[Rfam]
Nucleotides: 167
Stems, first nucleotide, its partner, number of pairs: 011153004018033006034148006044053002054133003062096008099128004
Number, partner (000 for none) and nucleotide at each position: 001000a002000u003000u004000g005000a006000a007000u008000c009000a010000c011153g012152g013151c014150c015000u016000a017000a018033a019032u020031u021030c022029g023028a024000g025000a026000a027000a028023u029022c030021g031020g032019a033018u034148a035147c036146g037145g038144a039143g040000g041000a042000c043000c044053c045052a046000a047000u048000c049000a050000a051000g052045u053044g054133g055132g056131g057000u058000u059000a060000a061000u062096c063095c064094u065093g066092c067091g068090c069089g070000u071000c072000u073000u074000g075000c076000g077000u078000u079000u080000g081000u082000g083000c084000a085000u086000g087000a088000c089069c090068g091067c092066g093065c094064g095063g096062g097000a098000g099128g100127g101126a102125u103000g104000a105000g106000u107000g108000a109000a110000g111000u112000c113000a114000g115000c116000u117000u118000c119000u120000c121000u122000g123000c124000c125102a126101u127100c128099c129000u130000a131056c132055c133054c134000g135000u136000c137000a138000g139000c140000u141000a142000a143039c144038u145037u146036c147035g148034u149000c150014g151013g152012c153011u154000a155000a156000a157000g158000c159000a160000g161000g162000g163000a164000a165000g166000g167000u